[Rfam]
RNA sequence: GGGAGCAGGAGGGUUGCUGACAGUGUACGACACUGAGGAAAGUCCUCUCUCCACGAUGCAAGCGGCCCGGUUGACGCCGGGGGCUCGAGAGGGCCGGCUCUGGAACAGAAACGAACCGUGCUGCGCGAGUACGAUGAAUCCGAAAGGACGAGAUUGCGCAAACCCGGAUGAAACGGCCAUCCCCGCUGGAGCAAGUCCAAGCAGGCCUGUUAAGUUGCAUCGGCAAGGGCCGGGUAGGAUGCAAAGUUGAAUGCAACCAGCCGCAAGGUGAACAGAAAGGGGCUUACUCCCUGCACCC
Numbered sequence: 001g002g003g004a005g006c007a008g009g010a011g012g013g014u015u016g017c018u019g020a021c022a023g024u025g026u027a028c029g030a031c032a033c034u035g036a037g038g039a040a041a042g043u044c045c046u047c048u049c050u051c052c053a054c055g056a057u058g059c060a061a062g063c064g065g066c067c068c069g070g071u072u073g074a075c076g077c078c079g080g081g082g083g084c085u086c087g088a089g090a091g092g093g094c095c096g097g098c099u100c101u102g103g104a105a106c107a108g109a110a111a112c113g114a115a116c117c118g119u120g121c122u123g124c125g126c127g128a129g130u131a132c133g134a135u136g137a138a139u140c141c142g143a144a145a146g147g148a149c150g151a152g153a154u155u156g157c158g159c160a161a162a163c164c165c166g167g168a169u170g171a172a173a174c175g176g177c178c179a180u181c182c183c184c185g186c187u188g189g190a191g192c193a194a195g196u197c198c199a200a201g202c203a204g205g206c207c208u209g210u211u212a213a214g215u216u217g218c219a220u221c222g223g224c225a226a227g228g229g230c231c232g233g234g235u236a237g238g239a240u241g242c243a244a245a246g247u248u249g250a251a252u253g254c255a256a257c258c259a260g261c262c263g264c265a266a267g268g269u270g271a272a273c274a275g276a277a278a279g280g281g282g283c284u285u286a287c288u289c290c291c292u293g294c295a296c297c298c
Stems, first nucleotide, its partner, number of pairs: 001298003005294005010288002012258006021035005040285003044282005049191004054223001061187005066081005082095005096182002101179003116167003119162001122160005139148002195240004204231005
RNA: Archaeal RNase P